small Cajal body-specific RNA 18: a 77-nucleotide RNA sequence from Castor canadensis.
Rfam classes the family as a small Cajal body RNA.
Taxonomically the source falls in Castor (Eukaryota, Metazoa, Tetrapoda, Euarchontoglires).
scaRNAs are a specific class of small nuclear RNAs which localise to the Cajal bodies and guide the modification of RNA polymerase II transcribed spliceosomal RNAs U1, U2, U4, U5 and U12. This C/D box domain U91 (also known as U4-8) was identified by Darzacq and is predicted to guide the 2'O-ribose methylation of U4 snRNA C8.
The match comes from Rfam's covariance-model search (76 bits).
Pairs were carried over by alignment from the consensus structure, which was predicted with PFOLD.

RNA sequence: CUGCCGAUGAUGACGUGACAAGUGUGCGAUCUGAGUUCUGGGAACCAGGCGAUGGAGUGUGCUAACGACUGAGGCCG
Numbered sequence: 001c002u003g004c005c006g007a008u009g010a011u012g013a014c015g016u017g018a019c020a021a022g023u024g025u026g027c028g029a030u031c032u033g034a035g036u037u038c039u040g041g042g043a044a045c046c047a048g049g050c051g052a053u054g055g056a057g058u059g060u061g062c063u064a065a066c067g068a069c070u071g072a073g074g075c076c077g
Stems, first nucleotide, its partner, number of pairs: 003075003038048004